mir-302 microRNA precursor family: a 69-nucleotide RNA from Gallus gallus. The family is grouped with related families in Rfam's "mir-290 clan".

[Rfam]
RNA sequence: CCUCAACUUUAACAUGGAGGUACUUGCUGGACACCUGAAAAAGUAAGUGCUUCCAUGUUUUAGUUGUGG
Numbered sequence: 001c002c003u004c005a006a007c008u009u010u011a012a013c014a015u016g017g018a019g020g021u022a023c024u025u026g027c028u029g030g031a032c033a034c035c036u037g038a039a040a041a042a043g044u045a046a047g048u049g050c051u052u053c054c055a056u057g058u059u060u061u062a063g064u065u066g067u068g069g
Stems, first nucleotide, its partner, number of pairs: 001069002005065004011059018